[Rfam]
RNA sequence: AUUCGUUCUCAGGGCGGGGUGAAAUUCCCCACCGGCGGUAUGAGGUUCGCCCUCGAGCCCGCGAGCGCCGCUUUCCGAUGAGGGCGGGUCAGCAGAUCCGGUGCGAUGCCGGAGCCGACGGUCACAGUCCGGAUGGAAGAGAAUGAGG
Numbered sequence: 001a002u003u004c005g006u007u008c009u010c011a012g013g014g015c016g017g018g019g020u021g022a023a024a025u026u027c028c029c030c031a032c033c034g035g036c037g038g039u040a041u042g043a044g045g046u047u048c049g050c051c052c053u054c055g056a057g058c059c060c061g062c063g064a065g066c067g068c069c070g071c072u073u074u075c076c077g078a079u080g081a082g083g084g085c086g087g088g089u090c091a092g093c094a095g096a097u098c099c100g101g102u103g104c105g106a107u108g109c110c111g112g113a114g115c116c117g118a119c120g121g122u123c124a125c126a127g128u129c130c131g132g133a134u135g136g137a138a139g140a141g142a143a144u145g146a147g148g
Stems, first nucleotide, its partner, number of pairs: 003146008017029003031128002033117002035062004057115002065093002097113005119131003
RNA: FMN riboswitch aptamer (RFN element)
Organism: Ciceribacter lividus